[Rfam]
RNA sequence: UUCUUAUCGAGAGAGAUGGAGGGACCGGCCCGAUGAAAUCUCAGCAACCAGCCGUGGCGUGCGGUCAGGUGCUAAAUCCAGCAGGCGAUUGCUUUCGUCUGGGAGAUAAGGA
Numbered sequence: 001u002u003c004u005u006a007u008c009g010a011g012a013g014a015g016a017u018g019g020a021g022g023g024a025c026c027g028g029c030c031c032g033a034u035g036a037a038a039u040c041u042c043a044g045c046a047a048c049c050a051g052c053c054g055u056g057g058c059g060u061g062c063g064g065u066c067a068g069g070u071g072c073u074a075a076a077u078c079c080a081g082c083a084g085g086c087g088a089u090u091g092c093u094u095u096c097g098u099c100u101g102g103g104a105g106a107u108a109a110g111g112a
Stems, first nucleotide, its partner, number of pairs: 001112008013042005021031003025081001027079002043073004048069002051065004077104001082101006
RNA: SAM riboswitch aptamer (S box leader)
Organism: Alteribacillus persepolensis